[Rfam]
RNA sequence: GCAUUUUUUUAUUAACAUUGGCAAAUUUUGCAGAUUUGUUUGACAUACAAUCCCUAGCUUUGCUUGUGGAUUUAGUCUCAUACACAAUGGUAAGCACGUAAUUAUGCUAGUAUGAGUAGAGUAUAAUUAUAUUGAGUCCUAUAGACCAACGCAGUUAACUACAUGUCCGGUGUGGCGGAGUAAUCAAAGAUCCGCUUGACGAGCCUAUAUGGAAGAGCCGUCACACCUCGUAUGUAUGUUGCUGCUAGUAGUUGUUAAUUAGUUGAUUCUUUGACAGUGAUACAC
Numbered sequence: 001g002c003a004u005u006u007u008u009u010u011a012u013u014a015a016c017a018u019u020g021g022c023a024a025a026u027u028u029u030g031c032a033g034a035u036u037u038g039u040u041u042g043a044c045a046u047a048c049a050a051u052c053c054c055u056a057g058c059u060u061u062g063c064u065u066g067u068g069g070a071u072u073u074a075g076u077c078u079c080a081u082a083c084a085c086a087a088u089g090g091u092a093a094g095c096a097c098g099u100a101a102u103u104a105u106g107c108u109a110g111u112a113u114g115a116g117u118a119g120a121g122u123a124u125a126a127u128u129a130u131a132u133u134g135a136g137u138c139c140u141a142u143a144g145a146c147c148a149a150c151g152c153a154g155u156u157a158a159c160u161a162c163a164u165g166u167c168c169g170g171u172g173u174g175g176c177g178g179a180g181u182a183a184u185c186a187a188a189g190a191u192c193c194g195c196u197u198g199a200c201g202a203g204c205c206u207a208u209a210u211g212g213a214a215g216a217g218c219c220g221u222c223a224c225a226c227c228u229c230g231u232a233u234g235u236a237u238g239u240u241g242c243u244g245c246u247a248g249u250a251g252u253u254g255u256u257a258a259u260u261a262g263u264u265g266a267u268u269c270u271u272u273g274a275c276a277g278u279g280a281u282a283c284a285c
Stems, first nucleotide, its partner, number of pairs: 077094002080091002098130011134269005144253003151245005162234005169227004174222005195203001204212002
Rfam assigns this 285-nucleotide RNA from Alphacoronavirus rhinolophi to the family "Alphacoronavirus 3'UTR". The 3' UTR of alphacoronaviruses consists of two small hairpins (PK-SL2) which can form an alternate conformation (PK-SL1) where the loop region of the second hairpin interacts with the stem of the first hairpin. PK-SL2 has been confirmed in HCoV-229E and HCoV-NL63 by in vitro structure probing experiments. Downstream of this pseudoknot lies the hypervariable region (HVR), which is supported by many covarying basepairs in alphacoronaviruses. Further, a conserved octanucleotide sequence is present in the HVR. The base pairs follow the family's consensus structure. Rfam's curators put it in the seed alignment. By type it is a cis-regulatory element. Clan: Coronavirus 3' UTR. The organism belongs to Alphacoronavirus rhinolophi, within Viruses. Gene Ontology term of the family: viral RNA genome replication.